[Rfam]
RNA: Streptomyces RNA 4115
Organism: Streptomyces sp. Ru87
RNA sequence: GCGUGGGUCGGCCCGCUGCACAGGACCCGGUGGGCCGGGGGACACCGUCACCUCAUUCCCCGCGGGUGGCGGAACGGUCCGGGAGGCCCGCACCGCCUCCCGGGCCGCG
Dot-bracket structure: ((...(.(((((((((((.........))))))))))(....).(((((((((..........)))))))))).)((((((((((((.......)))))))))))))).